RNA sequence: AGAGCCCUGCACGUUGCGAAGUCCCAGGUCCCACCUGGGAUACGAAUCUAUAGAAAUUUUCAUAGCAGCUGCGGGGCUUU
Numbered sequence: 001a002g003a004g005c006c007c008u009g010c011a012c013g014u015u016g017c018g019a020a021g022u023c024c025c026a027g028g029u030c031c032c033a034c035c036u037g038g039g040a041u042a043c044g045a046a047u048c049u050a051u052a053g054a055a056a057u058u059u060u061c062a063u064a065g066c067a068g069c070u071g072c073g074g075g076g077c078u079u080u
Stems, first nucleotide, its partner, number of pairs: 001080011014068004021041009